The family of this 68-nucleotide RNA sequence from Mycobacterium bohemicum is "ASdes TB sRNA". The base pairs follow the family's consensus structure, which is taken from published work.
[Rfam]
RNA sequence: UUGGCGGUCGGGUCCACCUCGCGGGUGACGAUCAGGUACUCGCGCAGGGCGAUGGCGUGCAGGUGCUC
Numbered sequence: 001u002u003g004g005c006g007g008u009c010g011g012g013u014c015c016a017c018c019u020c021g022c023g024g025g026u027g028a029c030g031a032u033c034a035g036g037u038a039c040u041c042g043c044g045c046a047g048g049g050c051g052a053u054g055g056c057g058u059g060c061a062g063g064u065g066c067u068c
Stems, first nucleotide, its partner, number of pairs: 005062001008059001012029002015027004035056001037054002040052004
The organism belongs to Mycobacterium, within Bacteria.